The record is a 380-nucleotide RNA sequence from Vibrio phage vB_pir03, which matches "Group I catalytic intron" in Rfam. Rfam's curators write: Group I catalytic introns are large self-splicing ribozymes. They catalyse their own excision from mRNA, tRNA and rRNA precursors in a wide range of organisms. The core secondary structure consists of 9 paired regions (P1-P9). These fold to essentially two domains - the P4-P6 domain (formed from the stacking of P5, P4, P6 and P6a helices) and the P3-P9 domain (formed from the P8, P3, P7 and P9 helices).
RNA sequence: AUACUUCUUUCAAAGGCUGGAAGUUUAAAUUGUAAGUCCGCCCCUAUGGUGACAUACGGGUGAGAGUGUGUUAAUUGCUGGUAAAGUCUAAAGCCCAACACCAAAACGGAAUCCGAAAGGAUAGACGGCAAUGGUGACGAAAGUCAGAAAAGACGUUGGGAUGGCCUAUGGUGAGAGCCUAAGGGUUUUGAUAAUGGACAAUUCGAGCAGCCAAGUGCCUAAGUAUAUCCGUGAGGAUAGAUAUGGUAAAGGUUCAACGACUAAGGGAUUCUGCACCCUGUAGGGGCCAAGUGGCUUCCAAACGCACACGCCUCGGGUUGACUGAAGAAGUCUUAUCCCCGAGGAUUGAUAUAGUCUCGGCGUCCAGUGAAAACCUGGAG
Numbered sequence: 001a002u003a004c005u006u007c008u009u010u011c012a013a014a015g016g017c018u019g020g021a022a023g024u025u026u027a028a029a030u031u032g033u034a035a036g037u038c039c040g041c042c043c044c045u046a047u048g049g050u051g052a053c054a055u056a057c058g059g060g061u062g063a064g065a066g067u068g069u070g071u072u073a074a075u076u077g078c079u080g081g082u083a084a085a086g087u088c089u090a091a092a093g094c095c096c097a098a099c100a101c102c103a104a105a106a107c108g109g110a111a112u113c114c115g116a117a118a119g120g121a122u123a124g125a126c127g128g129c130a131a132u133g134g135u136g137a138c139g140a141a142a143g144u145c146a147g148a149a150a151a152g153a154c155g156u157u158g159g160g161a162u163g164g165c166c167u168a169u170g171g172u173g174a175g176a177g178c179c180u181a182a183g184g185g186u187u188u189u190g191a192u193a194a195u196g197g198a199c200a201a202u203u204c205g206a207g208c209a210g211c212c213a214a215g216u217g218c219c220u221a222a223g224u225a226u227a228u229c230c231g232u233g234a235g236g237a238u239a240g241a242u243a244u245g246g247u248a249a250a251g252g253u254u255c256a257a258c259g260a261c262u263a264a265g266g267g268a269u270u271c272u273g274c275a276c277c278c279u280g281u282a283g284g285g286g287c288c289a290a291g292u293g294g295c296u297u298c299c300a301a302a303c304g305c306a307c308a309c310g311c312c313u314c315g316g317g318u319u320g321a322c323u324g325a326a327g328a329a330g331u332c333u334u335a336u337c338c339c340c341g342a343g344g345a346u347u348g349a350u351a352u353a354g355u356c357u358c359g360g361c362g363u364c365c366a367g368u369g370a371a372a373a374c375c376u377g378g379a380g
Stems, first nucleotide, its partner, number of pairs: 007023006031036001066309004071304001076209004080204002086199005210253002218246002224241001226239005257357001259356005312343006364378004368373001

The match comes from Rfam's covariance-model search (55 bits). The organism belongs to Caudoviricetes, within Viruses. A reference for the family is Cech (1990), "Self-splicing of group I introns", Annu Rev Biochem.